Background: A member of the RNA family "ALIL pseudoknot" from Burkholderia multivorans, 117 nucleotides long. A search with the family's covariance model found it, with a score of 109 bits. By type it is a cis-regulatory element.
RNA sequence: CGCGUUUUUUGCGCAGGCGGAGCUCGACCGCCGACUCAAGUCGUGAAGGCGUAUAUCGACCGCUACCGCGAUGCGUACGGGGUCGAGCCCAUCUGCAAGGUCUUGCAGAUUGCCCCG
Number, nucleotide and partner (000 for none) at each position: 001c000002g000003c000004g000005u000006u000007u000008u000009u000010u000011g000012c000013g000014c000015a000016g032017g031018c030019g029020g028021a000022g000023c000024u000025c000026g000027a000028c020029c019030g018031c017032c016033g000034a000035c000036u000037c000038a000039a000040g000041u000042c000043g000044u000045g000046a000047a000048g000049g000050c000051g000052u000053a000054u000055a000056u000057c000058g000059a000060c000061c000062g000063c000064u000065a000066c000067c000068g000069c000070g000071a000072u000073g000074c000075g000076u000077a000078c117079g116080g115081g114082g113083u000084c000085g000086a000087g000088c000089c112090c000091a000092u109093c108094u107095g106096c105097a104098a103099g000100g000101u000102c000103u098104u097105g096106c095107a094108g093109a092110u000111u000112g089113c082114c081115c080116c079117g078